Overview:
The family of this 56-nucleotide RNA from Pimenta dioica is "Plastid-ccsA-ndhD-2 3UTR RNA". Rfam classes the family as a cis-regulatory element. The family's consensus secondary structure was predicted with LocARNA. A reference for the family is Richter et al. (2023), "Retrograde signaling in plants: A critical review focusing on the GUN pathway and beyond", Plant Commun. NCBI's taxonomy places the organism under Eukaryota, Euphyllophyta, Myrteae, Pimentinae, Pimenta. Rfam describes the family as follows. Plastid ccsA-ndhD-2 is a non-coding RNA (ncRNA) recognised in plastids. It was found in the three prime untranslated region (3UTR) of ccsA and ndhD genes, its 3UTR location suggests a role in transcript maturation.

RNA sequence: GUCUUUAUGAGAACCAUUUGAAUCACUACAAUACUUGAUUCAAAUGGUUCUCGACA
Numbered sequence: 001g002u003c004u005u006u007a008u009g010a011g012a013a014c015c016a017u018u019u020g021a022a023u024c025a026c027u028a029c030a031a032u033a034c035u036u037g038a039u040u041c042a043a044a045u046g047g048u049u050c051u052c053g054a055c056a
Stems, first nucleotide, its partner, number of pairs: 008053018